[Rfam]
RNA: Rhodo-rpoB RNA
Nucleotides: 092
Stems, first nucleotide, its partner, number of pairs: 001043005010031002013028005069087005
Number, partner (000 for none) and nucleotide at each position: 001043a002042a003041g004040u005039c006000g007000g008000g009000a010031g011030g012000g013028u014027g015026c016025c017024g018000g019000u020000g021000g022000g023000a024017c025016g026015g027014c028013a029000g030011c031010c032000a033000c034000g035000a036000a037000u038000a039005g040004a041003c042002u043001u044000g045000g046000g047000a048000c049000c050000u051000c052000c053000g054000g055000u056000c057000a058000a059000a060000u061000g062000g063000g064000u065000g066000a067000a068000g069087c070086a071085u072084c073083g074000c075000g076000g077000c078000c079000c080000a081000g082000g083073c084072g085071g086070u087069g088000u089000g090000g091000a092000a